[Rfam]
RNA sequence: GAGAACUAGGUGAGAAUCCUAGUGGCCGAAAACCUAAGGUUUCCUCAGGAAGGCUCGUCCGCUGAGGGUUAGUCGGGACCUAAGCCGAGGCCGAAAGGCGUAGGUGAUGGACAAUCGGUUGAUAUUCCGAUACUACUGCAAAUCGUUAUUACCGAUGGAGUGACGCAGGAAGAUAGAGUGUGCUAGCUAUUGGAUGCUAGUCUAAGCACUUAGGUAUACAGGUAGGCAAAUCCGCCUGUAUUAGCUGAGGUGUGAUGGGGAAGGCCUUUUAGGCUGAAGUACUUGAUUCUACGCUGCCAAGAAAAGCUUCUAGGGAGAAAUGUAGUACCCGUACCGCAAACCGACACAGGUAGGUGAGGAGAGAAUCCUAAGGCCGG
Numbered sequence: 001g002a003g004a005a006c007u008a009g010g011u012g013a014g015a016a017u018c019c020u021a022g023u024g025g026c027c028g029a030a031a032a033c034c035u036a037a038g039g040u041u042u043c044c045u046c047a048g049g050a051a052g053g054c055u056c057g058u059c060c061g062c063u064g065a066g067g068g069u070u071a072g073u074c075g076g077g078a079c080c081u082a083a084g085c086c087g088a089g090g091c092c093g094a095a096a097g098g099c100g101u102a103g104g105u106g107a108u109g110g111a112c113a114a115u116c117g118g119u120u121g122a123u124a125u126u127c128c129g130a131u132a133c134u135a136c137u138g139c140a141a142a143u144c145g146u147u148a149u150u151a152c153c154g155a156u157g158g159a160g161u162g163a164c165g166c167a168g169g170a171a172g173a174u175a176g177a178g179u180g181u182g183c184u185a186g187c188u189a190u191u192g193g194a195u196g197c198u199a200g201u202c203u204a205a206g207c208a209c210u211u212a213g214g215u216a217u218a219c220a221g222g223u224a225g226g227c228a229a230a231u232c233c234g235c236c237u238g239u240a241u242u243a244g245c246u247g248a249g250g251u252g253u254g255a256u257g258g259g260g261a262a263g264g265c266c267u268u269u270u271a272g273g274c275u276g277a278a279g280u281a282c283u284u285g286a287u288u289c290u291a292c293g294c295u296g297c298c299a300a301g302a303a304a305a306g307c308u309u310c311u312a313g314g315g316a317g318a319a320a321u322g323u324a325g326u327a328c329c330c331g332u333a334c335c336g337c338a339a340a341c342c343g344a345c346a347c348a349g350g351u352a353g354g355u356g357a358g359g360a361g362a363g364a365a366u367c368c369u370a371a372g373g374c375c376g377g
Stems, first nucleotide, its partner, number of pairs: 005023006024375004032355004038335002043067006052060002074331004079110002084105003088101001090099003114131005134327007143318002152315002157310005165297004171290003176284005182201006202258002206253004213246003217240007225233002262275002265272001341350002357369004
A member of the RNA family "Bacterial large subunit ribosomal RNA" from Clostridium fungisolvens, 377 nucleotides of a longer RNA. The family is grouped with related families in Rfam's "LSU clan". The organism belongs to Clostridium, within Bacteria.